[Rfam]
THF (Tetrahydrofolate) riboswitch aptamer: a 101-nucleotide RNA sequence from Clostridium botulinum. Taxonomically the source falls in Clostridium botulinum A (Bacteria, Bacillota, Clostridium, Clostridium botulinum). It is one of the family's seed sequences. Tetrahydrofolate (THF) riboswitch was first reported for Ames et al. as an RNA motif in 5' untranslated (5'-UTR)regions of folate transport and biosynthesis genes in Firmicutes genomes. A reference for the family is Trausch et al. (2011), "The structure of a tetrahydrofolate-sensing riboswitch reveals two ligand binding sites in a single aptamer", Structure.
RNA sequence: AACAGAGUAGGUAAUCACACGUUAAGGUUUAGAGGACGGGAAGUUGUCUCUAAAAGAAAAGUCUUUAAAAGAUUUGCGAUGUGUUACCGCAUUCCGCUGUU
Numbered sequence: 001a002a003c004a005g006a007g008u009a010g011g012u013a014a015u016c017a018c019a020c021g022u023u024a025a026g027g028u029u030u031a032g033a034g035g036a037c038g039g040g041a042a043g044u045u046g047u048c049u050c051u052a053a054a055a056g057a058a059a060a061g062u063c064u065u066u067a068a069a070a071g072a073u074u075u076g077c078g079a080u081g082u083g084u085u086a087c088c089g090c091a092u093u094c095c096g097c098u099g100u101u
Stems, first nucleotide, its partner, number of pairs: 001101005010088005016083004020078003028054008039094003043090001059075006